[Rfam]
RNA: TPP riboswitch aptamer (THI element)
Organism: Collinsella aerofaciens
RNA sequence: GAUUCGAUGCGGGAGUGCCGGCGGUGCAAACCACAAGGCUGAGAGGGCAUGGGGCCCAAUCCUUUGAACCUGUCAGUUAAUGCUGGCGUAGGGAGCAUGCCGCCUUUACAG
Numbered sequence: 001g002a003u004u005c006g007a008u009g010c011g012g013g014a015g016u017g018c019c020g021g022c023g024g025u026g027c028a029a030a031c032c033a034c035a036a037g038g039c040u041g042a043g044a045g046g047g048c049a050u051g052g053g054g055c056c057c058a059a060u061c062c063u064u065u066g067a068a069c070c071u072g073u074c075a076g077u078u079a080a081u082g083c084u085g086g087c088g089u090a091g092g093g094a095g096c097a098u099g100c101c102g103c104c105u106u107u108a109c110a111g
Base pairs, nucleotide, nucleotide: 007098008097009096010095011063012062013061014060017039018038019037046056047055048054069092070091071090072089073086074085075084076083
Dot-bracket structure: ......((((((((..(((.................)))......(((.....)))...)))).....((((((((......))))..))))..)))).............